RNA sequence: CCCGCCGCUGUCAGUAACAAGGAUUCAUCCUGUUGUGAAGCUGAAAACCAGCAGGGAAUCACUGUUACUGGAGGCGGGGGU
Numbered sequence: 001c002c003c004g005c006c007g008c009u010g011u012c013a014g015u016a017a018c019a020a021g022g023a024u025u026c027a028u029c030c031u032g033u034u035g036u037g038a039a040g041c042u043g044a045a046a047a048c049c050a051g052c053a054g055g056g057a058a059u060c061a062c063u064g065u066u067a068c069u070g071g072a073g074g075c076g077g078g079g080g081u
Base pairs, nucleotide, nucleotide: 011071012070013069014068015067016066017065018064019063022060023059024058025057026056029055030054031053032052033051034050035049037048
RNA: mir-459 microRNA precursor family